Notes: Rfam assigns this 116-nucleotide RNA from Calidifontibacillus erzurumensis to the family "epsC RNA". Rfam 15.1 lists 450 matches to the family in 334 species.
RNA sequence: UGGUGAUGUCUCCUUACCAUUAUCAAUGGAGGCACUCGGUCACGCUGUGGGUAAGGUAAAUCUUACCUUAGACGCAGGUCGUCGAGGGUGUGAUGUGAGGGGGGGUUCGAUGCCCC
Numbered sequence: 001u002g003g004u005g006a007u008g009u010c011u012c013c014u015u016a017c018c019a020u021u022a023u024c025a026a027u028g029g030a031g032g033c034a035c036u037c038g039g040u041c042a043c044g045c046u047g048u049g050g051g052u053a054a055g056g057u058a059a060a061u062c063u064u065a066c067c068u069u070a071g072a073c074g075c076a077g078g079u080c081g082u083c084g085a086g087g088g089u090g091u092g093a094u095g096u097g098a099g100g101g102g103g104g105g106u107u108c109g110a111u112g113c114c115c116c
Stems, first nucleotide, its partner, number of pairs: 001019004007034007035099004039094008049068008071083004102116005
Overview
Pairs were carried over by alignment from the consensus structure, which is taken from published work. The match comes from Rfam's covariance-model search (122 bits). By type it is a cis-regulatory element.